[Rfam]
Shown here is a 123-nucleotide sequence from Arsenophonus endosymbiont of Aphis craccivora, a member of the family "Phenylalanine leader peptide". Pairs were carried over by alignment from the consensus structure, which was predicted with CMfinder. The source organism's lineage runs through Bacteria, Pseudomonadota, Gammaproteobacteria, Enterobacterales and Arsenophonus. On this family, see Zurawski et al., Proc Natl Acad Sci U S A 1978: "Nucleotide sequence of the leader region of the phenylalanine operon of Escherichia coli".
RNA sequence: AAAGAUGAAAAUUGUUUUUUUUCGUUUCUUUUUUUAUUUUAGCACCUAAAAUUUGGGGCUUUCGCGCAUUUAAGAAAAGAAAAGAAAAACCGCGAUAAGCCUCCAAAUGGAGGCUUUUUUGUU
Numbered sequence: 001a002a003a004g005a006u007g008a009a010a011a012u013u014g015u016u017u018u019u020u021u022u023c024g025u026u027u028c029u030u031u032u033u034u035u036a037u038u039u040u041a042g043c044a045c046c047u048a049a050a051a052u053u054u055g056g057g058g059c060u061u062u063c064g065c066g067c068a069u070u071u072a073a074g075a076a077a078a079g080a081a082a083a084g085a086a087a088a089a090c091c092g093c094g095a096u097a098a099g100c101c102u103c104c105a106a107a108u109g110g111a112g113g114c115u116u117u118u119u120u121g122u123u
Stems, first nucleotide, its partner, number of pairs: 014093002019088005025082008034073003040055002056067001058065002097116008